[Rfam]
The record is a 79-nucleotide sequence, which matches "Proteo-phage-1 RNA" in Rfam.
By type it is a small RNA.
RNA sequence: CUGUAGCCAGGACAGCCCUCGGGAAUGCCUGGACGUCGAUAGCCGGAUAGUGCGACGUACGGAAUCAACGCCGGCAGCC
Numbered sequence: 001c002u003g004u005a006g007c008c009a010g011g012a013c014a015g016c017c018c019u020c021g022g023g024a025a026u027g028c029c030u031g032g033a034c035g036u037c038g039a040u041a042g043c044c045g046g047a048u049a050g051u052g053c054g055a056c057g058u059a060c061g062g063a064a065u066c067a068a069c070g071c072c073g074g075c076a077g078c079c
Base pairs, nucleotide, nucleotide: 001015002014003013004012007032008031009030010029011028016023017022034057035056036055037054038053042075043074044073045072046071